Notes:
The family of this 263-nucleotide sequence from Psophia crepitans is "Small Cajal body specific RNA 6". A search with the family's covariance model found it, with a score of 123 bits. Pairs were carried over by alignment from the consensus structure, which is taken from published work. The literature on the family includes a 2001 paper in EMBO J by Huttenhofer et al., "RNomics: an experimental approach that identifies 201 candidates for novel, small, non-messenger RNAs in mouse". The family has 17 seed sequences and 1,309 matches in Rfam 15.1. Lineage of the source: Eukaryota > Metazoa > Sauria > Neoaves > Psophia. By type it is a small Cajal body RNA.
RNA sequence: GGUCUGUGAUGAAUAGUAAAAGGUCUGAUUAUCCUACGACUUGCACUUCCAUGACCUUUUCUCCCAGCAGUUUCUCUCCAGUCCCAGCACAGUAAUGGUGUGACUGGCAGAGUGUUUGCUGACAGCCUGCGAUGUGUUCAGUUCAUGUUCGCCUGAAAUAUCGGAGACAUGACUGGAAUCAGCAUCCAACAGUUCAGCUUGAAGGAGUUUGGGGUCUUGGGCUGUUGUAACUGGACAUGUGAUCUGACUUUUCUGCUGAGACC
Numbered sequence: 001g002g003u004c005u006g007u008g009a010u011g012a013a014u015a016g017u018a019a020a021a022g023g024u025c026u027g028a029u030u031a032u033c034c035u036a037c038g039a040c041u042u043g044c045a046c047u048u049c050c051a052u053g054a055c056c057u058u059u060u061c062u063c064c065c066a067g068c069a070g071u072u073u074c075u076c077u078c079c080a081g082u083c084c085c086a087g088c089a090c091a092g093u094a095a096u097g098g099u100g101u102g103a104c105u106g107g108c109a110g111a112g113u114g115u116u117u118g119c120u121g122a123c124a125g126c127c128u129g130c131g132a133u134g135u136g137u138u139c140a141g142u143u144c145a146u147g148u149u150c151g152c153c154u155g156a157a158a159u160a161u162c163g164g165a166g167a168c169a170u171g172a173c174u175g176g177a178a179u180c181a182g183c184a185u186c187c188a189a190c191a192g193u194u195c196a197g198c199u200u201g202a203a204g205g206a207g208u209u210u211g212g213g214g215u216c217u218u219g220g221g222c223u224g225u226u227g228u229a230a231c232u233g234g235a236c237a238u239g240u241g242a243u244c245u246g247a248c249u250u251u252u253c254u255g256c257u258g259a260g261a262c263c
Stems, first nucleotide, its partner, number of pairs: 001263004035246002038243001040241001043222002046219001061207004065121006078107006085100002129187001131186005144171004149167002152164002